[Rfam]
RNA: Small Cajal body-specific RNA 7
RNA sequence: UGGAAAUGAUGAAAUAGAGAUAAUUGGGUGUUGAAUGUUGUUUGAUUGGAAUUUUUUAAUAAAUAUUUUGAGUAAUUCUUAGUCUAAGUUUAAUAUCGUAUGUAAUAAUGUGAGAGUGUGUGUGUGUGUGUGUGUGUAUACAUGCUAGGAGGCUAUGGAAAGGGGGCACUGACUGGUGAUGCUGAUAUUGGAGUGCAUCUGAGGCUGUUGUAGAAAUACAUGGGUACACAUUACAACAUUGCCAAUGAUUAUAACCCAAGAACAGCUCACCUGACUGGCCUAGCACCCUAAAUUCUCUAACAGGUUCAUUAAACAUGGUCCUGUGAUCUGAUCCAC
Numbered sequence: 001u002g003g004a005a006a007u008g009a010u011g012a013a014a015u016a017g018a019g020a021u022a023a024u025u026g027g028g029u030g031u032u033g034a035a036u037g038u039u040g041u042u043u044g045a046u047u048g049g050a051a052u053u054u055u056u057u058a059a060u061a062a063a064u065a066u067u068u069u070g071a072g073u074a075a076u077u078c079u080u081a082g083u084c085u086a087a088g089u090u091u092a093a094u095a096u097c098g099u100a101u102g103u104a105a106u107a108a109u110g111u112g113a114g115a116g117u118g119u120g121u122g123u124g125u126g127u128g129u130g131u132g133u134g135u136g137u138a139u140a141c142a143u144g145c146u147a148g149g150a151g152g153c154u155a156u157g158g159a160a161a162g163g164g165g166g167c168a169c170u171g172a173c174u175g176g177u178g179a180u181g182c183u184g185a186u187a188u189u190g191g192a193g194u195g196c197a198u199c200u201g202a203g204g205c206u207g208u209u210g211u212a213g214a215a216a217u218a219c220a221u222g223g224g225u226a227c228a229c230a231u232u233a234c235a236a237c238a239u240u241g242c243c244a245a246u247g248a249u250u251a252u253a254a255c256c257c258a259a260g261a262a263c264a265g266c267u268c269a270c271c272u273g274a275c276u277g278g279c280c281u282a283g284c285a286c287c288c289u290a291a292a293u294u295c296u297c298u299a300a301c302a303g304g305u306u307c308a309u310u311a312a313a314c315a316u317g318g319u320c321c322u323g324u325g326a327u328c329u330g331a332u333c334c335a336c
Stems, first nucleotide, its partner, number of pairs: 001335004206238008217226003